Record summary:
The family of this 132-nucleotide sequence from Oppiella nova is "U11 spliceosomal RNA". The base pairs follow the family's consensus structure, which is taken from published work. Lineage of the source: Eukaryota > Arthropoda > Oribatida > Oppiidae > Oppiella. Its family is annotated with U11 snRNP, mRNA 5'-splice site recognition and pre-mRNA 5'-splice site binding in the Gene Ontology.
RNA sequence: GAAAAGGGUAUCGGUUACGCUUUCACGCAAUAAUCCAUUGAGCCUAUGGUUCGGUGCAGAAUCGCAAUCAAGAGAUUCUGGGUAUACAAUUUUUGGAGCAGGGACAGUCGAUGUCUAUGCAUUGACGUCCCA
Numbered sequence: 001g002a003a004a005a006g007g008g009u010a011u012c013g014g015u016u017a018c019g020c021u022u023u024c025a026c027g028c029a030a031u032a033a034u035c036c037a038u039u040g041a042g043c044c045u046a047u048g049g050u051u052c053g054g055u056g057c058a059g060a061a062u063c064g065c066a067a068u069c070a071a072g073a074g075a076u077u078c079u080g081g082g083u084a085u086a087c088a089a090u091u092u093u094u095g096g097a098g099c100a101g102g103g104a105c106a107g108u109c110g111a112u113g114u115c116u117a118u119g120c121a122u123u124g125a126c127g128u129c130c131c132a
Base pairs, nucleotide, nucleotide: 008085009084010083011082012081013035014034015033016032017031036056037055038054039053040052041051042050043049044048057080058079059078060077061076062075063074102130103129104128105127107126108125109124110123111122112121113120114119